[Rfam]
RNA sequence: CUCUUAUCCCGAGCUGGCGGAGGGACAGGCCCGAUGAAACCCGGCAACCAUCACUUUUUACAUAUCAAGUGAGUUUUUGAGAAUCCUAUACAUAUAAGUAGGUCUCCAUUGAUAAAGGUGAUAAGGUGCUAACCUGAGCAAGGUAUGUCCUUGAUCGAUAAGAG
Numbered sequence: 001c002u003c004u005u006a007u008c009c010c011g012a013g014c015u016g017g018c019g020g021a022g023g024g025a026c027a028g029g030c031c032c033g034a035u036g037a038a039a040c041c042c043g044g045c046a047a048c049c050a051u052c053a054c055u056u057u058u059u060a061c062a063u064a065u066c067a068a069g070u071g072a073g074u075u076u077u078u079g080a081g082a083a084u085c086c087u088a089u090a091c092a093u094a095u096a097a098g099u100a101g102g103u104c105u106c107c108a109u110u111g112a113u114a115a116a117g118g119u120g121a122u123a124a125g126g127u128g129c130u131a132a133c134c135u136g137a138g139c140a141a142g143g144u145a146u147g148u149c150c151u152u153g154a155u156c157g158a159u160a161a162g163a164g
Base pairs, nucleotide, nucleotide: 001164002163003162004161005160006159007158008157013042016041017040022032023031024030026138029135043130044129045128046127048126049125050122051121052120053119054118055117056116057115058114139153140152141151142150143149
Dot-bracket structure: ((((((((....(..((....(((.[..[))).......)))((((.(((((((((((.......................................................)))))))))..))))))....]..](((((.....)))))...))))))))

SAM riboswitch aptamer (S box leader): a 164-nucleotide RNA sequence from Bacillus sp. HNG. A search with the family's covariance model found it, with a score of 67 bits. Taxonomically the source falls in Bacillus (Bacteria, Bacillota, Bacilli, Bacillaceae). On this family, see Epshtein et al., Proc Natl Acad Sci U S A 2003: "The riboswitch-mediated control of sulfur metabolism in bacteria".